[Rfam]
Annotation:
This 179-nucleotide RNA from Actinomadura kijaniata belongs to the Rfam family "c-di-AMP riboswitch aptamer (ydaO/yuaA leader)". The match comes from Rfam's covariance-model search (76 bits). Rfam's curators write: This family represents a conserved RNA structure found upstream of the ydaO and yuaA genes in Bacillus subtilis and related genes in other bacteria.
RNA sequence: GUUCGGACGACGCCGAGUCCGCGCACGGCGCGGAGCCGGGGAACCAGUGCGAGGGCGUCCCGUUGGCCGCCACUCGCAGGGGUGAAUCGGCGCUCAGUUCUGUUCUCCCCAGAGCGCCGUAGGGCGACUUCCACGUCCGAAUCCGUCAGCUAACCCGGUAGGCGACAUGGAAGACAGGA
Numbered sequence: 001g002u003u004c005g006g007a008c009g010a011c012g013c014c015g016a017g018u019c020c021g022c023g024c025a026c027g028g029c030g031c032g033g034a035g036c037c038g039g040g041g042a043a044c045c046a047g048u049g050c051g052a053g054g055g056c057g058u059c060c061c062g063u064u065g066g067c068c069g070c071c072a073c074u075c076g077c078a079g080g081g082g083u084g085a086a087u088c089g090g091c092g093c094u095c096a097g098u099u100c101u102g103u104u105c106u107c108c109c110c111a112g113a114g115c116g117c118c119g120u121a122g123g124g125c126g127a128c129u130u131c132c133a134c135g136u137c138c139g140a141a142u143c144c145g146u147c148a149g150c151u152a153a154c155c156c157g158g159u160a161g162g163c164g165a166c167a168u169g170g171a172a173g174a175c176a177g178g179a
Stems, first nucleotide, its partner, number of pairs: 011164004018034005035159006045079001080144003088119008122138004